[Rfam]
Soft rot Enterobacteriaceae Rev 39 5'UTR: a 298-nucleotide sequence from Izhakiella capsodis. The family's consensus secondary structure was predicted with RNAfold. Lineage of the source: Bacteria > Pseudomonadota > Gammaproteobacteria > Erwiniaceae > Izhakiella. It is annotated as a cis-regulatory element. From bacteria cultured under starvation conditions.
RNA sequence: AAAAGUUGAAAGAGGUAUCUAAACUGUGAUAACUCUGUAGGUAUUACUUCGGACAAAUGAGUUAUUCGAGUUAACAUGAAAGCUAUUCUACGAGUCGUCAGCCUAGUCGUCAUUCACGUCGUGGUGAUUAUUACCACGCCGCGCGGGGCUACGCUCGGAGGAAUAAAGGCUUAAUAAACAAGUCGAUUUUCUAGAGAACCCCCGCACCGAAAGGUCCGGGGGUUUUUUUAUUGUUCAACUUCAGUACUAAGGAACACACCAUGAUUACUAGCAUAGAAUGCUGUUGUUCCCAUAAAGA
Numbered sequence: 001a002a003a004a005g006u007u008g009a010a011a012g013a014g015g016u017a018u019c020u021a022a023a024c025u026g027u028g029a030u031a032a033c034u035c036u037g038u039a040g041g042u043a044u045u046a047c048u049u050c051g052g053a054c055a056a057a058u059g060a061g062u063u064a065u066u067c068g069a070g071u072u073a074a075c076a077u078g079a080a081a082g083c084u085a086u087u088c089u090a091c092g093a094g095u096c097g098u099c100a101g102c103c104u105a106g107u108c109g110u111c112a113u114u115c116a117c118g119u120c121g122u123g124g125u126g127a128u129u130a131u132u133a134c135c136a137c138g139c140c141g142c143g144c145g146g147g148g149c150u151a152c153g154c155u156c157g158g159a160g161g162a163a164u165a166a167a168g169g170c171u172u173a174a175u176a177a178a179c180a181a182g183u184c185g186a187u188u189u190u191c192u193a194g195a196g197a198a199c200c201c202c203c204g205c206a207c208c209g210a211a212a213g214g215u216c217c218g219g220g221g222g223u224u225u226u227u228u229u230a231u232u233g234u235u236c237a238a239c240u241u242c243a244g245u246a247c248u249a250a251g252g253a254a255c256a257c258a259c260c261a262u263g264a265u266u267a268c269u270a271g272c273a274u275a276g277a278a279u280g281c282u283g284u285u286g287u288u289c290c291c292a293u294a295a296a297g298a
Stems, first nucleotide, its partner, number of pairs: 005033004011027001016021001038073003042069001046066001048064001049060002084252001086250001089246002092242002097239002101236001104233003108118003120138005128133001139160001144157004161191003169184001171182002193228012206215003253285004261274003